[Rfam]
RNA sequence: GAUAAAGGGUGUGAAAAGCACCCUCGCCGAAAGCCCAAGGUUUCCUGCGCAACGUUCAUCGACGCAGGGUGAGUCGGCCCCUAAGGCGAGGCAGAAAUGCGUAGUCGAUGGGAAACGGGUCAAUAUUCCCGUACCGAUUUUAGAUGCGAUGGGGGGACGGAGAAGGUUAGGCCGGCCGGGUGUUGGACGUCCCGGUUUAAGCGUGUAGGCGUGCCCGAUAGGCAAAUCCGUCGGGCUGAGCUGAGGCGUGAUGACGAGGUCUCUUUGAGACCGAAGUGGUUGAUACCCUGCUUCCAGGAAAAGCCUCUAAGCUUCAGUCUAGAAUCGACCGUACCGCAAACCGACACAGGUGGGCAGGAAGAAAAUUCUAAGGCGCU
Numbered sequence: 001g002a003u004a005a006a007g008g009g010u011g012u013g014a015a016a017a018g019c020a021c022c023c024u025c026g027c028c029g030a031a032a033g034c035c036c037a038a039g040g041u042u043u044c045c046u047g048c049g050c051a052a053c054g055u056u057c058a059u060c061g062a063c064g065c066a067g068g069g070u071g072a073g074u075c076g077g078c079c080c081c082u083a084a085g086g087c088g089a090g091g092c093a094g095a096a097a098u099g100c101g102u103a104g105u106c107g108a109u110g111g112g113a114a115a116c117g118g119g120u121c122a123a124u125a126u127u128c129c130c131g132u133a134c135c136g137a138u139u140u141u142a143g144a145u146g147c148g149a150u151g152g153g154g155g156g157a158c159g160g161a162g163a164a165g166g167u168u169a170g171g172c173c174g175g176c177c178g179g180g181u182g183u184u185g186g187a188c189g190u191c192c193c194g195g196u197u198u199a200a201g202c203g204u205g206u207a208g209g210c211g212u213g214c215c216c217g218a219u220a221g222g223c224a225a226a227u228c229c230g231u232c233g234g235g236c237u238g239a240g241c242u243g244a245g246g247c248g249u250g251a252u253g254a255c256g257a258g259g260u261c262u263c264u265u266u267g268a269g270a271c272c273g274a275a276g277u278g279g280u281u282g283a284u285a286c287c288c289u290g291c292u293u294c295c296a297g298g299a300a301a302a303g304c305c306u307c308u309a310a311g312c313u314u315c316a317g318u319c320u321a322g323a324a325u326c327g328a329c330c331g332u333a334c335c336g337c338a339a340a341c342c343g344a345c346a347c348a349g350g351u352g353g354g355c356a357g358g359a360a361g362a363a364a365a366u367u368c369u370a371a372g373g374c375g376c377u
Base pairs, nucleotide, nucleotide: 006024007023008022009021010020011019025375026374027373028372033355034354035353036352039335040334044068045067046066047065048064049063053061054060075331076330077329080111081110085106086105087104089102091100092099093098115132116131117130118129119128135327136326137325138324139323140322141321142320143319144318145317146312147311151307152306153305154304159294160293161292162291165287166286167285170281171280172279173278174277175196176195177194178193179192180191197254198253201249202248203247204246208242209241210240213236214235215234216233217232218231219230221229222228258272259271260270261269262268341350342349357369358368359367360366
Dot-bracket structure: .....((((((.......))))))((((....((((..((...((((((...((.....)).))))))......(((..((...(((.(.(((....))).).)))...))...(((((........)))))..(((((((((((((...((((....((((..(((..(((((((((((..........))))))((..((((...(((..(((((((.((.....)))))))))...)))...))))...))...(((((.....)))))....)))))...)))...)))).........))))...))....))))))))))).)))..)).....((......)).)))).((((.....))))..))))..
This 377-nucleotide part of an RNA from Azoarcus sp. KH32C belongs to the Rfam family "Bacterial large subunit ribosomal RNA". A search with the family's covariance model found it, with a score of 2826 bits. The base pairs follow the family's consensus structure, which is taken from published work. The organism belongs to Azoarcus, within Bacteria.